[Rfam]
RNA sequence: UAGGAUUGUCGGGGCCAGGAGCCCCCCCCGAGCCCAGGAUAACCCUUAAUGUUGGGGGGCA
Dot-bracket structure: .......[[[.[[[[[.[[..((((((]]].]]]]..]]].............))))))..
The family of this 61-nucleotide RNA from Catagonus wagneri is "Gag/pol translational readthrough site". The match comes from Rfam's covariance-model search (74 bits). A reference for the family is Wills et al. (1994), "Pseudoknot-dependent read-through of retroviral gag termination codons: importance of sequences in the spacer and loop 2", EMBO J. Rfam links the family to the GO term viral translational readthrough.